Shown here is a 52-nucleotide RNA from Callithrix jacchus, a member of the family "mir-1302 microRNA precursor family". Its family is annotated with RISC complex and miRNA-mediated post-transcriptional gene silencing in the Gene Ontology. It scores 62 bits against the family's covariance model. The source organism's lineage runs through Eukaryota, Deuterostomia, Dipnotetrapodomorpha, Cebidae and Callithrix. The family's consensus secondary structure was predicted with WAR.
RNA sequence: UUCUUAGUAUAAGUAUGUCUCAUGUCAUAUUUGGUACACACUUAUACUAAAA
Numbered sequence: 001u002u003c004u005u006a007g008u009a010u011a012a013g014u015a016u017g018u019c020u021c022a023u024g025u026c027a028u029a030u031u032u033g034g035u036a037c038a039c040a041c042u043u044a045u046a047c048u049a050a051a052a
Stems, first nucleotide, its partner, number of pairs: 006048007014040001016038001018036001020034002022031001